[Rfam]
RNA sequence: GAGAGAUGCUCUUUCUUGACGGGGAUUACGGACCUUAGACAAGUCGUAUUAUCCCAUGUCAGAGGGGCAUUUCUUUUAUUCCCACACCGUUGGAACCGGAAUCACAUCGGUGAAUCCAG
Numbered sequence: 001g002a003g004a005g006a007u008g009c010u011c012u013u014u015c016u017u018g019a020c021g022g023g024g025a026u027u028a029c030g031g032a033c034c035u036u037a038g039a040c041a042a043g044u045c046g047u048a049u050u051a052u053c054c055c056a057u058g059u060c061a062g063a064g065g066g067g068c069a070u071u072u073c074u075u076u077u078a079u080u081c082c083c084a085c086a087c088c089g090u091u092g093g094a095a096c097c098g099g100a101a102u103c104a105c106a107u108c109g110g111u112g113a114a115u116c117c118a119g
Base pairs, nucleotide, nucleotide: 002074003073004072005071006070007069008068009067011065012064013063014062017061018060019059021057023055024054027048029046032044033043098117099116100115102113103112104111